[Rfam]
RNA sequence: UGCGCAGCGCGUGCUUCACCACGAUGUUGGGAAAGCUCACGCCCUUGAGCCGCGCCGUGCGGAUGUACUGCGCGGUCAUGACCUCGGCCAUGCUGGCGCGUGUCAUCCGCGCGAUGUAGCCCAUGCCGUAAAGCGCGAUGGUCAGCACCGGCAGAAAGAAGUUCUCGAAGGUGGCGUUC
Numbered sequence: 001u002g003c004g005c006a007g008c009g010c011g012u013g014c015u016u017c018a019c020c021a022c023g024a025u026g027u028u029g030g031g032a033a034a035g036c037u038c039a040c041g042c043c044c045u046u047g048a049g050c051c052g053c054g055c056c057g058u059g060c061g062g063a064u065g066u067a068c069u070g071c072g073c074g075g076u077c078a079u080g081a082c083c084u085c086g087g088c089c090a091u092g093c094u095g096g097c098g099c100g101u102g103u104c105a106u107c108c109g110c111g112c113g114a115u116g117u118a119g120c121c122c123a124u125g126c127c128g129u130a131a132a133g134c135g136c137g138a139u140g141g142u143c144a145g146c147a148c149c150g151g152c153a154g155a156a157a158g159a160a161g162u163u164c165u166c167g168a169a170g171g172u173g174g175c176g177u178u179c
Stems, first nucleotide, its partner, number of pairs: 005140002008137005015130001016128001020125002028123004038113001040111003046105003051100004055075008082096002145179001147177001149174001151172002154165001156163002